Shown here is a 107-nucleotide RNA from Saccharospirillum salsuginis, a member of the family "TPP riboswitch aptamer (THI element)". It scores 76 bits against the family's covariance model. The family's consensus secondary structure is taken from published work. Vitamin B(1) in its active form thiamin pyrophosphate (TPP) is an essential coenzyme that is synthesised by coupling of pyrimidine and thiazole moieties in bacteria.
RNA sequence: GCUGUCUUGUCGGAGUGCCAGUGAAACAGCUGGCUGAGAUCGCAUCAGCGGGAUCCGUGGAACCUGAUCGAGUUAAUACUCGCGAAGGGAACAAGAGAGCACAGCCA
Numbered sequence: 001g002c003u004g005u006c007u008u009g010u011c012g013g014a015g016u017g018c019c020a021g022u023g024a025a026a027c028a029g030c031u032g033g034c035u036g037a038g039a040u041c042g043c044a045u046c047a048g049c050g051g052g053a054u055c056c057g058u059g060g061a062a063c064c065u066g067a068u069c070g071a072g073u074u075a076a077u078a079c080u081c082g083c084g085a086a087g088g089g090a091a092c093a094a095g096a097g098a099g100c101a102c103a104g105c106c107a
Base pairs, nucleotide, nucleotide: 006095007094008093009092010091011057012056013055014054016051017034018033019032020031021030041050042049043048063088064087065086069082070081071080072079